RNA sequence: UCACAAGUUCAAGGUCAGAGCAGAAGUGGUUGUGGUGUGACCCUGUCAGAUUCCAAUGAAUCUGCAAAUUCUACU
Dot-bracket structure: ............((((..[[.[[[[(((.......)))))))....(((((((....)))))))....]]]].]]
The family of this 75-nucleotide sequence from Crocodylus porosus is "Mammalian CPEB3 ribozyme". The base pairs follow the family's consensus structure, which is taken from published work.